The family of this 96-nucleotide RNA sequence from Vibrio xiamenensis is "t44 RNA".
A search with the family's covariance model found it, with a score of 86 bits.
On this family, see Tjaden et al., Nucleic Acids Res 2002: "Transcriptome analysis of Escherichia coli using high-density oligonucleotide probe arrays".
Taxonomically the source falls in Vibrio (Bacteria, Pseudomonadota, Vibrionales, Vibrionaceae).
Rfam classes the family as a small RNA.

RNA sequence: CGAACUUAUUCUUUAAAUCACACACAUUCCGACACAUGUUCCGGGGUGCCCGUCUGAUAGGCAGGGUCGGAUUCAUGGGGAAUGUGGAGGCCUAAC
Dot-bracket structure: ......................((((((((....((((.((((....((((............))))))))..)))).))))))))..........